The family of this 105-nucleotide RNA sequence from Salmo salar is "Small nucleolar RNA U6-53/MBII-28".
Pairs were carried over by alignment from the consensus structure.
RNA sequence: CUCUGAUGAUGAUCCCGCCAUGCUAAUACUGAUGCGCCAGACUGACAGUGUCAGUGGGGGUGCAAGUGAGUUAAACUCACCUUCUCAUACUGACUGGUUCAGCGU
Dot-bracket structure: (.((.....................................(((((...)))))..............................................)).).
A reference for the family is Huttenhofer et al. (2001), "RNomics: an experimental approach that identifies 201 candidates for novel, small, non-messenger RNAs in mouse", EMBO J. The match comes from Rfam's covariance-model search (63 bits).